Rfam assigns this 301-nucleotide RNA sequence from Lonsdalea quercina to the family "Soft rot Enterobacteriaceae Rev 39 5'UTR". Rfam describes the family as follows. From bacteria cultured under starvation conditions. The source organism's lineage runs through Bacteria, Pseudomonadota, Gammaproteobacteria, Enterobacterales and Lonsdalea. It is annotated as a cis-regulatory element. Rfam links the family to the GO term cellular response to starvation. The match comes from Rfam's covariance-model search (213 bits).
[Rfam]
RNA sequence: AAAUGUUGUCAGUCCUCACCUGACUAUGGUAACUCUGUAGUCAUUCGUUCGACACUGAUUAAUGAAUAAACCGAAAAUGAAAGCGUUUGCCCUCGUGAUUAGCCUAGUCGUCAUUAGCGUGGUGGUGAUUAUCAACCUACCGUGCGGGGCAGCACUUGGACGAAGAAUGGCUUAAAAAUCAAGGCCGAAUUCAAGAAAAACCCCCGCACCAAAUGGUCGGGGGUUUUUUUAUGGGAUCGAAAUUUGUAACAAGGGAGCAGAGAAUGGUCAAUAGCAUAAAAUCCUGUCAUACCCAAAAGAA
Numbered sequence: 001a002a003a004u005g006u007u008g009u010c011a012g013u014c015c016u017c018a019c020c021u022g023a024c025u026a027u028g029g030u031a032a033c034u035c036u037g038u039a040g041u042c043a044u045u046c047g048u049u050c051g052a053c054a055c056u057g058a059u060u061a062a063u064g065a066a067u068a069a070a071c072c073g074a075a076a077a078u079g080a081a082a083g084c085g086u087u088u089g090c091c092c093u094c095g096u097g098a099u100u101a102g103c104c105u106a107g108u109c110g111u112c113a114u115u116a117g118c119g120u121g122g123u124g125g126u127g128a129u130u131a132u133c134a135a136c137c138u139a140c141c142g143u144g145c146g147g148g149g150c151a152g153c154a155c156u157u158g159g160a161c162g163a164a165g166a167a168u169g170g171c172u173u174a175a176a177a178a179u180c181a182a183g184g185c186c187g188a189a190u191u192c193a194a195g196a197a198a199a200a201c202c203c204c205c206g207c208a209c210c211a212a213a214u215g216g217u218c219g220g221g222g223g224u225u226u227u228u229u230u231a232u233g234g235g236a237u238c239g240a241a242a243u244u245u246g247u248a249a250c251a252a253g254g255g256a257g258c259a260g261a262g263a264a265u266g267g268u269c270a271a272u273a274g275c276a277u278a279a280a281a282u283c284c285u286g287u288c289a290u291a292c293c294c295a296a297a298a299g300a301a
Stems, first nucleotide, its partner, number of pairs: 005033007015022001038073001040071002044066005049058002086254002093248001097244004102238001103235004109119003121141005127136001129134001142161002145158004162192003169186005194229003198226009208217003257287004262282001264277003